Shown here is a 152-nucleotide RNA from Actinocorallia herbida, a member of the family "c-di-AMP riboswitch aptamer (ydaO/yuaA leader)".
RNA sequence: GCCGUCCUCCCGCCGAGUCCGCGCCCAGCGCGGAGCCGGGGACCCACUCGCCGAUCAGCGAUCGGCACGGGGUGAAUCGGUGGCUUGCCACCGUAGGGCUAUUCCAGGCCCGAAUCCGUCAGCUAACCCGGUAGGCGGCAUGGAAACAGGAG
Numbered sequence: 001g002c003c004g005u006c007c008u009c010c011c012g013c014c015g016a017g018u019c020c021g022c023g024c025c026c027a028g029c030g031c032g033g034a035g036c037c038g039g040g041g042a043c044c045c046a047c048u049c050g051c052c053g054a055u056c057a058g059c060g061a062u063c064g065g066c067a068c069g070g071g072g073u074g075a076a077u078c079g080g081u082g083g084c085u086u087g088c089c090a091c092c093g094u095a096g097g098g099c100u101a102u103u104c105c106a107g108g109c110c111c112g113a114a115u116c117c118g119u120c121a122g123c124u125a126a127c128c129c130g131g132u133a134g135g136c137g138g139c140a141u142g143g144a145a146a147c148a149g150g151a152g
Stems, first nucleotide, its partner, number of pairs: 011137004018034007035132006045069001070117003078093004096111004
Taxonomically the source falls in Actinocorallia (Bacteria, Actinomycetota, Actinomycetes, Streptosporangiales). Rfam's curators write: This family represents a conserved RNA structure found upstream of the ydaO and yuaA genes in Bacillus subtilis and related genes in other bacteria. The ydaO/yuaA element is thought to act as a genetic 'off' switch for the ydaO and yuaA genes in its native state. It is believed that the element may be triggered during osmotic shock leading to activation of ydaO, a predicted amino acid transporter gene, and members of the yuaA-yubG operon which code for KtrA and KtrB K+ transporters.